[Rfam]
RNA sequence: AAUACCUAGUGCUCCUCUGUUGAACUCAAGAGCAGAACCUGCAUUGAUUUCAACAGGAGCAAGACUCAGGCCU
Numbered sequence: 001a002a003u004a005c006c007u008a009g010u011g012c013u014c015c016u017c018u019g020u021u022g023a024a025c026u027c028a029a030g031a032g033c034a035g036a037a038c039c040u041g042c043a044u045u046g047a048u049u050u051c052a053a054c055a056g057g058a059g060c061a062a063g064a065c066u067c068a069g070g071c072c073u
Base pairs, nucleotide, nucleotide: 003070005069008066009065010064013061015059016058017057018055019054020053021052022051023050024049026047027046028045029044032042033041